Description:
This 47-nucleotide RNA sequence from Alkalibacterium kapii belongs to the Rfam family "Na+ riboswitch aptamer (DUF1646)". Its family is annotated with regulation of gene expression and sodium ion binding in the Gene Ontology. For this family Rfam cites "Na(+) riboswitches regulate genes for diverse physiological processes in bacteria" (White et al., Nat Chem Biol, 2022). The match comes from Rfam's covariance-model search (52 bits).
Nucleotides: 047
Base pairs, nucleotide, nucleotide: 003020004019005018006015007014008013028047029046030045031044032043033042034041
Number, partner (000 for none) and nucleotide at each position: 001000g002000g003020u004019u005018g006015g007014g008013c009000g010000u011000u012000a013008g014007c015006u016000u017000u018005c019004a020003a021000g022000g023000a024000a025000a026000a027000u028047u029046u030045c031044u032043u033042c034041u035000g036000g037000g038000g039000u040000g041034a042033g043032a044031a045030g046029a047028a